[Rfam]
RNA sequence: UAAAGAAUUGGACUAUCGGAUAGGACUUUCAGGAGUCGUUUCCAAACCGCCUUGAGGUGCUGAAUUUAAGAGAUUUGGUAUUGAGCGUCAAGGUUAAAGCAAGUUCAUAAUCGUUUGUAGGA
Number, nucleotide and partner (000 for none) at each position: 001u000002a016003a000004a014005g013006a000007a000008u000009u000010g000011g000012a000013c005014u004015a000016u002017c000018g043019g042020a041021u000022a039023g000024g000025a036026c035027u034028u033029u000030c000031a000032g000033g028034a027035g026036u025037c000038g000039u022040u000041u020042c019043c018044a000045a000046a000047c000048c121049g000050c093051c092052u091053u090054g089055a088056g082057g081058u000059g079060c078061u077062g000063a075064a074065u073066u072067u000068a000069a000070g000071a000072g066073a065074u064075u063076u000077g061078g060079u059080a000081u057082u056083g000084a000085g000086c000087g000088u055089c054090a053091a052092g051093g050094u000095u000096a000097a000098a000099g118100c117101a116102a115103g114104u113105u000106c000107a000108u000109a000110a000111u000112c000113g104114u103115u102116u101117g100118u099119a000120g000121g048122a000
Group II catalytic intron D1-D4-2: a 122-nucleotide sequence from Psychroflexus maritimus. The literature on the family includes a 2001 paper in Trends Genet by Bonen and Vogel, "The ins and outs of group II introns". Rfam's curators write: Group II introns are found in rRNA, tRNA and mRNA of organelles in fungi, plants and protists, and also in mRNA in bacteria. Rfam links the family to the GO term Group II intron splicing. The match comes from Rfam's covariance-model search (69 bits).